[Rfam]
RNA sequence: CAGCUGUCAUGGCCGAAGGGAGACCUCCCGCAUCGGCGAGGUGCGUGUGGCUUGGGGGUCACCUGAUCCCCCAAACAGCGGACUUGGUGCCUGGUUCGAAUCGCCGGGUCGCGAGAUGCUGCCCUUCACCGGGCAACUUUCUUCUCCCGCACUCGUGCGAGUAGUCCACGACCGGCUGUCGGCGCGCUAAGCCCUGGCCCGUACCCUCGAGGGAAGCGAUUCUGCAGAGACCGGGCCCCCCGGCGAUGGCGGCACCAGAUCACACCGCCGCUGCACACCCACCGUGCUGAAUGGGAUGGUCGACUUUCAUUU
Number, nucleotide and partner (000 for none) at each position: 001c015002a000003g013004c012005u000006g000007u000008c000009a000010u000011g000012g004013c003014c000015g001016a310017a000018g308019g307020g306021a305022g304023a300024c299025c298026u000027c000028c295029c000030g000031c293032a292033u291034c289035g288036g287037c286038g285039a000040g283041g282042u281043g280044c000045g278046u277047g276048u275049g274050g000051c000052u000053u000054g071055g070056g069057g068058g067059u066060c065061a000062c000063c000064u000065g060066a059067u058068c057069c056070c055071c054072c000073a000074a000075a000076c000077a000078g272079c000080g000081g268082a000083c000084u000085u267086g266087g265088u264089g263090c000091c258092u257093g256094g255095u254096u252097c251098g250099a000100a247101u246102c245103g244104c243105c242106g241107g240108g239109u000110c000111g000112c000113g000114a000115g000116a000117u000118g000119c000120u000121g000122c000123c000124c000125u000126u000127c000128a000129c000130c000131g000132g000133g000134c000135a000136a000137c000138u000139u000140u000141c000142u000143u000144c184145u000146c182147c181148c000149g179150c178151a177152c000153u171154c170155g169156u168157g167158c000159g166160a165161g000162u000163a000164g000165u160166c159167c157168a156169c155170g154171a153172c000173c000174g000175g000176c000177u151178g150179u149180c000181g147182g146183c000184g144185c000186g000187c191188u000189a000190a000191g187192c000193c000194c000195u000196g237197g236198c235199c234200c233201g232202u000203a000204c000205c000206c229207u228208c227209g000210a000211g000212g000213g222214a221215a220216g000217c000218g000219a000220u215221u214222c213223u000224g000225c000226a000227g208228a207229g206230a000231c000232c201233g200234g199235g198236c197237c196238c000239c108240c107241c106242g105243g104244c103245g102246a101247u100248g000249g000250c098251g097252g096253c000254a095255c094256c093257a092258g091259a000260u000261c000262a000263c089264a088265c087266c086267g085268c081269c000270g000271c000272u078273g000274c049275a048276c047277a046278c045279c000280c043281a042282c041283c040284g000285u038286g037287c036288u035289g034290a000291a033292u032293g031294g000295g028296a000297u000298g025299g024300u023301c000302g000303a000304c022305u021306u020307u019308c018309a000310u016311u000312u000